Rfam assigns this 60-nucleotide RNA from Galemys pyrenaicus to the family "U7 small nuclear RNA". It scores 41 bits against the family's covariance model. Animal histone pre-mRNAs are spliced by a different mechanism than nuclear pre-mRNAs and self-splicing introns. This processing involves the U7 snRNP, which contains only one RNA species: U7.

RNA sequence: AAGUGUUACAACUCUUAUAUUUUGUCUAGUAGGUUCUCCAGUCCUCAGUGGAAGACCCAA
Numbered sequence: 001a002a003g004u005g006u007u008a009c010a011a012c013u014c015u016u017a018u019a020u021u022u023u024g025u026c027u028a029g030u031a032g033g034u035u036c037u038c039c040a041g042u043c044c045u046c047a048g049u050g051g052a053a054g055a056c057c058c059a060a
Base pairs, nucleotide, nucleotide: 032057033056034055035054037052038051039050040049042047